[Rfam]
RNA: ivy-DE RNA
Organism: Pseudomonas japonica
RNA sequence: UGACCAAGGGGCCGGGCCGCUCUGAUUGUUGCAGGAUCGCAGGGGCCUAGGGGUACAUGGAGUGCCUCCGCCGAGGGCCGGGUCAGGCAGGCA
Numbered sequence: 001u002g003a004c005c006a007a008g009g010g011g012c013c014g015g016g017c018c019g020c021u022c023u024g025a026u027u028g029u030u031g032c033a034g035g036a037u038c039g040c041a042g043g044g045g046c047c048u049a050g051g052g053g054u055a056c057a058u059g060g061a062g063u064g065c066c067u068c069c070g071c072c073g074a075g076g077g078c079c080g081g082g083u084c085a086g087g088c089a090g091g092c093a
Stems, first nucleotide, its partner, number of pairs: 001085005010079004014048005020042002023039005050068007
Dot-bracket structure: (((((....(((((((((.((.(((((.......))))).)).))))).(((((((.....))))))).......)))).)))))........